[Rfam]
RNA sequence: GCGGGAGAGGUUCGCGAAUUCCCUCUAUAAAAAACUAAUGAUCA
Numbered sequence: 001g002c003g004g005g006a007g008a009g010g011u012u013c014g015c016g017a018a019u020u021c022c023c024u025c026u027a028u029a030a031a032a033a034a035c036u037a038a039u040g041a042u043c044a
Base pairs, nucleotide, nucleotide: 006026007025008024009023010022016036
Shown here is a 44-nucleotide sequence from Domibacillus iocasae, a member of the family "PreQ1 (pre queuosine) riboswitch aptamer". For this family Rfam cites "Identification of four genes necessary for biosynthesis of the modified nucleoside queuosine" (Reader et al., J Biol Chem, 2004).